RNA: nadA riboswitch
RNA sequence: GCUUUCAACAUCCCCGUUCCAGCGCGGUCGUAAACGCGGGCUGGAACUGAAGGC
Numbered sequence: 001g002c003u004u005u006c007a008a009c010a011u012c013c014c015c016g017u018u019c020c021a022g023c024g025c026g027g028u029c030g031u032a033a034a035c036g037c038g039g040g041c042u043g044g045a046a047c048u049g050a051a052g053g054c
Stems, first nucleotide, its partner, number of pairs: 001054007013040001014038001016047007023039001025036002028033001